Overview:
This 161-nucleotide sequence from Moellerella wisconsensis belongs to the Rfam family "Glm Y RNA activator of glmS mRNA". This family consists of a number of bacterial RNA genes of around 167 bases in length. A search with the family's covariance model found it, with a score of 123 bits. Its Rfam clan is "Glm clan". The family's RNA type in Rfam is small RNA.

RNA sequence: AGUUGCUCAUUCAACUCAUUAUGUCGGUCCACAUUAGGGUGGGGAUAUACCACAUAAAAUCAGAAUGACGCCAGAGUAAGGUGCCUACCGUCCGGUAAUAUCGAUAUUCGCCCUCGGGCCUUAUCACGCAAAGGACGACACGUUGAGUGAGGCGCCACCUA
Numbered sequence: 001a002g003u004u005g006c007u008c009a010u011u012c013a014a015c016u017c018a019u020u021a022u023g024u025c026g027g028u029c030c031a032c033a034u035u036a037g038g039g040u041g042g043g044g045a046u047a048u049a050c051c052a053c054a055u056a057a058a059a060u061c062a063g064a065a066u067g068a069c070g071c072c073a074g075a076g077u078a079a080g081g082u083g084c085c086u087a088c089c090g091u092c093c094g095g096u097a098a099u100a101u102c103g104a105u106a107u108u109c110g111c112c113c114u115c116g117g118g119c120c121u122u123a124u125c126a127c128g129c130a131a132a133g134g135a136c137g138a139c140a141c142g143u144u145g146a147g148u149g150a151g152g153c154g155c156c157a158c159c160u161a
Stems, first nucleotide, its partner, number of pairs: 005071002007068006019057006026051003080156007089137005103125004139149003